[Rfam]
RNA sequence: ACCGUAGUGCAGUGGCUAUGUCGUAACCAAUGAAGGUCUCCUGAGGUGCGAUUAUUUGCUAGUUGAAACUUUUACCAAUUUCAGUUAUAUUUAUAUAUAUUUAGUGAGAGAUAAUAGAAUUAGUAUUAUUACA
Numbered sequence: 001a002c003c004g005u006a007g008u009g010c011a012g013u014g015g016c017u018a019u020g021u022c023g024u025a026a027c028c029a030a031u032g033a034a035g036g037u038c039u040c041c042u043g044a045g046g047u048g049c050g051a052u053u054a055u056u057u058g059c060u061a062g063u064u065g066a067a068a069c070u071u072u073u074a075c076c077a078a079u080u081u082c083a084g085u086u087a088u089a090u091u092u093a094u095a096u097a098u099a100u101u102u103a104g105u106g107a108g109a110g111a112u113a114a115u116a117g118a119a120u121u122a123g124u125a126u127u128a129u130u131a132c133a
Stems, first nucleotide, its partner, number of pairs: 020052005026047003034042003085117003088113005094107001096103002
Shown here is a 133-nucleotide RNA sequence from Rhodnius prolixus, a member of the family "U4 spliceosomal RNA". The source organism's lineage runs through Eukaryota, Dicondylia, Eumetabola, Reduvioidea and Rhodnius. Rfam links the family to the GO terms U4 snRNP and spliceosomal tri-snRNP complex assembly. U4 small nuclear RNA (U4 snRNA) is a component of the major U2-dependent spliceosome. The match comes from Rfam's covariance-model search (70 bits).